[Rfam]
Nucleotides: 599
Base pairs, nucleotide, nucleotide: 001508003506004502005501006500007499009497010496015492016491519594520592521591522590523589524586525583526582527581528580529579532557535552536551537550538549539548540547559573560572561571563569
Number, partner (000 for none) and nucleotide at each position: 001508a002000c003506u004502a005501a006500g007499c008000u009497a010496u011000u012000a013000a014000c015492g016491c017000g018000c019000u020000g021000u022000u023000a024000u025000a026000g027000u028000c029000u030000u031000u032000c033000u034000a035000a036000c037000c038000g039000u040000c041000c042000c043000a044000g045000g046000u047000c048000u049000u050000a051000g052000c053000c054000c055000c056000c057000a058000c059000a060000u061000u062000c063000a064000g065000a066000u067000u068000g069000u070000g071000g072000u073000a074000g075000g076000g077000g078000g079000a080000u081000u082000c083000u084000c085000c086000u087000a088000a089000g090000g091000c092000c093000u094000a095000g096000u097000c098000a099000c100000g101000u102000a103000u104000a105000a106000c107000u108000u109000a110000g111000u112000u113000u114000g115000u116000g117000u118000u119000a120000g121000u122000u123000a124000u125000a126000u127000u128000a129000g130000u131000a132000g133000c134000a135000a136000c137000a138000c139000a140000g141000c142000u143000a144000g145000a146000u147000a148000u149000a150000a151000a152000g153000a154000a155000c156000a157000c158000u159000u160000g161000u162000u163000a164000g165000g166000u167000u168000u169000a170000u171000a172000g173000u174000a175000c176000u177000a178000g179000g180000c181000c182000u183000a184000g185000u186000g187000u188000g189000u190000a191000a192000c193000a194000c195000u196000a197000c198000u199000a200000g201000g202000c203000a204000a205000a206000g207000c208000u209000u210000g211000u212000a213000g214000a215000g216000a217000a218000c219000a220000g221000g222000c223000a224000g225000g226000u227000a228000a229000a230000a231000a232000u233000c234000u235000a236000u237000a238000a239000a240000a241000u242000a243000g244000a245000g246000u247000u248000a249000a250000u251000c252000u253000g254000c255000a256000g257000c258000u259000u260000a261000c262000u263000u264000a265000g266000c267000c268000u269000a270000a271000a272000u273000u274000g275000u276000a277000g278000c279000a280000c281000c282000u283000u284000a285000g286000a287000a288000g289000g290000u291000g292000c293000c294000u295000u296000g297000g298000c299000u300000a301000g302000a303000a304000g305000g306000u307000u308000u309000a310000a311000c312000g313000c314000u315000u316000g317000c318000u319000a320000a321000g322000c323000u324000a325000u326000a327000g328000g329000u330000u331000a332000g333000a334000g335000a336000c337000a338000u339000a340000g341000u342000u343000a344000u345000u346000a347000u348000c349000u350000c351000u352000a353000g354000c355000u356000u357000a358000a359000a360000g361000u362000a363000c364000a365000g366000g367000c368000u369000a370000c371000g372000c373000c374000u375000a376000c377000u378000u379000a380000a381000a382000a383000g384000a385000g386000u387000g388000c389000u390000a391000u392000g393000u394000c395000u396000a397000c398000u399000a400000g401000c402000u403000u404000a405000c406000a407000c408000a409000a410000g411000g412000c413000u414000a415000a416000g417000a418000a419000g420000c421000a422000u423000a424000g425000a426000c427000a428000g429000g430000u431000u432000u433000a434000a435000a436000a437000g438000u439000u440000a441000c442000u443000c444000u445000a446000u447000u448000u449000c450000u451000a452000g453000g454000u455000a456000u457000u458000a459000u460000a461000g462000a463000a464000c465000u466000a467000g468000c469000u470000u471000g472000u473000a474000g475000c476000a477000g478000c479000u480000a481000a482000g483000c484000g485000u486000u487000u488000a489000u490000a491016g492015c493000a494000a495000c496010g497009u498000u499007g500006c501005u502004u503000u504000u505000u506003a507000a508001u509000u510000c511000u512000u513000u514000a515000a516000u517000a518000u519594u520592a521591g522590c523589u524586c525583u526582u527581u528580c529579u530000a531000u532557u533000a534000u535552a536551c537550u538549a539548a540547a541000g542000c543000a544000g545000a546000a547540u548539u549538u550537a551536g552535u553000a554000a555000g556000c557532g558000u559573u560572a561571g562000a563569u564000u565000g566000u567000u568000u569563a570000c571561c572560u573559a574000c575000u576000a577000a578000u579529a580528g581527a582526g583525a584000a585000c586524g587000u588000a589523a590522g591521c592520u593000a594519g595000g596000u597000u598000u599000a